The record is a 307-nucleotide sequence from Rosa chinensis, which matches "Plant signal recognition particle RNA" in Rfam.
A search with the family's covariance model found it, with a score of 254 bits.
By type it is a non-coding RNA gene.
The family's consensus secondary structure is taken from published work.
Lineage of the source: Eukaryota > Viridiplantae > Spermatophyta > fabids > Rosa.
RNA sequence: GCCGAGCUUGGUAACGCGAGCUUAUAACCCGAGUGGGGACAUUAAGGUGUUGGAACGUUGGCUCCGUCUUAGCUGGUCGGGUCAGGCGCAAGCUCAUUUCCGACUUGCCCAUUCCAAGCAAGGAGUUGGGUUGUGUGGCAUGAGCGAAGGCCUGGGUCACAUUGUCCCUAAAGCGGAGGGCACAGCGUGAGGCUGGUUUCACAGAGCAGCGAUAACCUCCCGCUCCUUGCAGUGGAAGGAUAACAGGUCGGUGCUGCCCUGAUCCAUUGUGGCCCGCUAUACUCUGCCAAUUCGGACCUUCUCUUUU
Number, nucleotide and partner (000 for none) at each position: 001g040002c000003c038004g023005a022006g021007c020008u019009u018010g017011g000012u000013a000014a000015c000016g000017c010018g009019a008020g007021c006022u005023u004024a000025u000026a000027a000028c037029c036030c035031g000032a000033g000034u000035g030036g029037g028038g003039a000040c001041a000042u000043u000044a306045a305046g304047g303048u000049g301050u000051u000052g298053g297054a000055a000056c294057g293058u290059u289060g288061g000062c286063u000064c000065c000066g282067u281068c000069u000070u279071a278072g277073c276074u000075g274076g273077u272078c271079g265080g264081g263082u262083c261084a260085g259086g258087c000088g257089c000090a000091a255092g254093c000094u253095c000096a000097u000098u000099u000100c251101c250102g249103a248104c247105u246106u245107g244108c000109c239110c238111a000112u237113u236114c235115c234116a233117a000118g230119c229120a228121a227122g226123g225124a224125g223126u222127u000128g167129g166130g165131u164132u000133g162134u161135g160136u159137g158138g157139c156140a000141u154142g153143a000144g151145c150146g000147a000148a000149g000150g145151c144152c000153u142154g141155g000156g139157u138158c137159a136160c135161a134162u133163u000164g131165u130166c129167c128168c173169u000170a000171a000172a000173g168174c000175g220176g219177a218178g217179g216180g000181c000182a000183c000184a213185g000186c211187g210188u209189g000190a000191g000192g000193c204194u203195g202196g000197u000198u000199u000200c000201a000202c195203a194204g193205a000206g000207c000208a000209g188210c187211g186212a000213u184214a000215a000216c179217c178218u177219c176220c175221c000222g126223c125224u124225c123226c122227u121228u120229g119230c118231a000232g000233u116234g115235g114236a113237a112238g110239g109240a000241u000242a000243a000244c107245a106246g105247g104248u103249c102250g101251g100252u000253g094254c092255u091256g000257c088258c086259c085260u084261g083262a082263u081264c080265c079266a000267u000268u000269g000270u000271g078272g077273c076274c075275c000276g073277c072278u071279a070280u000281a067282c066283u000284c000285u000286g062287c000288c060289a059290a058291u000292u000293c057294g056295g000296a000297c053298c052299u000300u000301c049302u000303c047304u046305u045306u044307u000